[Rfam]
RNA sequence: UGGCGCUGCCUUUCAGGCAUCCUCUCCCAAACUUUUGACGGGGGCUGGCGCAAGCUGGCCCCCUUUUUCUUGGCCAGC
Numbered sequence: 001u002g003g004c005g006c007u008g009c010c011u012u013u014c015a016g017g018c019a020u021c022c023u024c025u026c027c028c029a030a031a032c033u034u035u036u037g038a039c040g041g042g043g044g045c046u047g048g049c050g051c052a053a054g055c056u057g058g059c060c061c062c063c064u065u066u067u068u069c070u071u072g073g074c075c076a077g078c
Stems, first nucleotide, its partner, number of pairs: 008018004040063009
A member of the RNA family "Makes More Granules Regulator RNA (mmgR)" from Croceicoccus naphthovorans, 78 nucleotides long.
Rfam links the family to the GO terms response to nitrogen compound, protein binding and DNA-templated transcription, termination.
It scores 47 bits against the family's covariance model.
SuhB later renamed mmgR (makes more granules regulator) was a putative non-coding RNA found multiple times in the Agrobacterium tumefaciens genome and related alpha-proteobacteria. Other non-coding RNAs uncovered in the same analysis include: speF, ybhL, metA, and serC.Several studies inSinorhizobium meliloti showed that suhB element is indeed a non-coding RNA:firstly it was detected on Northern blot and called Sm8RNA, secondly in an RNAseq study referred to as SmelC689.The mutant phenotype's (strain lacking the small RNA) cytoplasm contains higher content of polyhydroxybutyrate (PBH)storage granules than wild type strain. The sRNA is required to limit the PBH intracellular accumulation when the nitrogen-fixing Sinorhizobium meliloti is under condition of surplus carbon in relation to nitrogen.
It is annotated as a small RNA.